This 236-nucleotide sequence from Eubacterium ventriosum belongs to the Rfam family "Cis-regulator of HTH transcription factor". The source organism's lineage runs through Bacteria, Bacillati, Eubacteriales, Eubacteriaceae and Eubacterium ventriosum. The family's RNA type in Rfam is cis-regulatory element. The sequence is in the family's curated seed alignment. This element was identified by RNA deep sequencing of Clostridioides difficile 630 where it is located immediately upstream of an uncharacterized HTH-type Transcriptional regulator. Homologues are found widely across firmicutes, consistently located 5' of transcriptional regulators of similar size and sequence, which strongly supports a cis-regulatory function.

[Rfam]
RNA sequence: CUUUUUUACGCAUAUUUAAUCACCUCACUACAUUUUACUGUUCCUGUUGAUUUUCUAACAGGUAUAGAAAAACGUAUAGUAUGGUUUGUCAGUUCCUAUUAUGCGUAUAAAGGUGAAAAUGUACUGCCUAGCGGCAAAUAAAAAAAACCGCUAUCAACAGUACCGUUUUUGCAUGUCACAAAAUAUCUUUUUCCAGAUGGCGGUUGAAAAGCCGCCUUUUUCUUUUCCCAUCAAUA
Numbered sequence: 001c002u003u004u005u006u007u008a009c010g011c012a013u014a015u016u017u018a019a020u021c022a023c024c025u026c027a028c029u030a031c032a033u034u035u036u037a038c039u040g041u042u043c044c045u046g047u048u049g050a051u052u053u054u055c056u057a058a059c060a061g062g063u064a065u066a067g068a069a070a071a072a073c074g075u076a077u078a079g080u081a082u083g084g085u086u087u088g089u090c091a092g093u094u095c096c097u098a099u100u101a102u103g104c105g106u107a108u109a110a111a112g113g114u115g116a117a118a119a120u121g122u123a124c125u126g127c128c129u130a131g132c133g134g135c136a137a138a139u140a141a142a143a144a145a146a147a148c149c150g151c152u153a154u155c156a157a158c159a160g161u162a163c164c165g166u167u168u169u170u171g172c173a174u175g176u177c178a179c180a181a182a183a184u185a186u187c188u189u190u191u192u193c194c195a196g197a198u199g200g201c202g203g204u205u206g207a208a209a210a211g212c213c214g215c216c217u218u219u220u221u222c223u224u225u226u227c228c229c230a231u232c233a234a235u236a
Stems, first nucleotide, its partner, number of pairs: 001112004007107002011103001013101002016098001029076003033072004038067004043062007079090001122162005131151004195219001197218001199216001201214005